[Rfam]
RNA sequence: UAAAUCGUUUUAUAGGGUUCCGCAGUUCCUUUCGGAACUGGCCUGGUCCGAGAUAAAACGUACAGUUGACUGUGUACACGGAAGGAUAAAAGCCUGGGAGAU
Numbered sequence: 001u002a003a004a005u006c007g008u009u010u011u012a013u014a015g016g017g018u019u020c021c022g023c024a025g026u027u028c029c030u031u032u033c034g035g036a037a038c039u040g041g042c043c044u045g046g047u048c049c050g051a052g053a054u055a056a057a058a059c060g061u062a063c064a065g066u067u068g069a070c071u072g073u074g075u076a077c078a079c080g081g082a083a084g085g086a087u088a089a090a091a092g093c094c095u096g097g098g099a100g101a102u
Stems, first nucleotide, its partner, number of pairs: 007059006015049002020046002022043001023040006060075006077097001079100001083095003
A member of the RNA family "Guanidine-I riboswitch aptamer" from Hydrogenispora ethanolica, 102 nucleotides long. The source organism's lineage runs through Bacteria, Bacillati, Bacillota and Hydrogenispora. The literature on the family includes a 2017 paper in RNA by Battaglia et al., "Structural basis for guanidine sensing by the ykkC family of riboswitches".